Shown here is a 73-nucleotide RNA sequence from Ursus maritimus, a member of the family "tRNA". It is annotated as a transfer RNA. Lineage of the source: Eukaryota > Bilateria > Dipnotetrapodomorpha > Eutheria > Ursus. Its Rfam clan is "tRNA clan".

RNA sequence: GCCUGGCUGGCUCAGUCAGAAGAGCGUGUGACUCCCAAUCUCAGGGUCAUGGGUUCAAGUCCCACGUUGGGCA
Numbered sequence: 001g002c003c004u005g006g007c008u009g010g011c012u013c014a015g016u017c018a019g020a021a022g023a024g025c026g027u028g029u030g031a032c033u034c035c036c037a038a039u040c041u042c043a044g045g046g047u048c049a050u051g052g053g054u055u056c057a058a059g060u061c062c063c064a065c066g067u068u069g070g071g072c073a
Stems, first nucleotide, its partner, number of pairs: 001072007010025004027043002030040002050064004